The family of this 65-nucleotide RNA sequence from Ceyx cyanopectus is "MAT2A 3'UTR stem loop F". The family's consensus secondary structure is taken from published work. The family's RNA type in Rfam is cis-regulatory element.
[Rfam]
RNA sequence: CCGGGACGCGGCGCUCGUGGCCGGUGUGGUACAGAGAAGCCGGCUUGUUUACCUGCCUGUCCCGG
Numbered sequence: 001c002c003g004g005g006a007c008g009c010g011g012c013g014c015u016c017g018u019g020g021c022c023g024g025u026g027u028g029g030u031a032c033a034g035a036g037a038a039g040c041c042g043g044c045u046u047g048u049u050u051a052c053c054u055g056c057c058u059g060u061c062c063c064g065g
Base pairs, nucleotide, nucleotide: 001065002064003063004062005061006060007059010057011056012055016047019045020044021043022042023041024040025039026032027031